Rfam assigns this 151-nucleotide RNA from Paraburkholderia phenazinium to the family "Burkholderia sRNA 7". Lineage of the source: Bacteria > Pseudomonadota > Betaproteobacteria > Burkholderiaceae > Paraburkholderia. A search with the family's covariance model found it, with a score of 129 bits. Pairs were carried over by alignment from the consensus structure, which was predicted with R-scape. From the family's description: Did not show any change in expression in iron-depletion and hydrogen peroxide (oxidative stress) treatment. By type it is a small RNA.

RNA sequence: GUAUUCUUUCGCCCAUGAACCGCAUCCAGUCCGAACUUCGACGUCGCCGCUCGCUGCUCCCUUAGGGACGCCGCCGGCUUUGUCACGGAUUCGCGCCGAUCAGGCGCAUGUUGUUCGAAUCACGAAAGCCACGGCAUGCCGUGGCUUUUUU
Dot-bracket structure: ......((..((.(................(((.....(((.(((((.((...(...........)...)).)).))).)))...)))....).))....................))......((((((((((....))))))))))...